[Rfam]
RNA sequence: CGUUAGUGCAGUGAAUAAGGCAGUAAGCUUGAUAUGACAAGCCGAUGAGUCGUCAUUGACCUAGUGUGACUCUGCCGAUAUAGAUUAGGCGCACUAACC
Numbered sequence: 001c002g003u004u005a006g007u008g009c010a011g012u013g014a015a016u017a018a019g020g021c022a023g024u025a026a027g028c029u030u031g032a033u034a035u036g037a038c039a040a041g042c043c044g045a046u047g048a049g050u051c052g053u054c055a056u057u058g059a060c061c062u063a064g065u066g067u068g069a070c071u072c073u074g075c076c077g078a079u080a081u082a083g084a085u086u087a088g089g090c091g092c093a094c095u096a097a098c099c
Base pairs, nucleotide, nucleotide: 002098003097004096005095006094007093008092009091019076020075021074022073027042028041029040030039031038047072048071049070050069051068052067054066055065056064057063058062
A member of the RNA family "Methylophilales-1 RNA" from Methylovorus sp. MM2, 99 nucleotides long.
The organism belongs to Methylovorus, within Bacteria.
The family's consensus secondary structure is taken from published work.
The family's RNA type in Rfam is small RNA.
It scores 107 bits against the family's covariance model.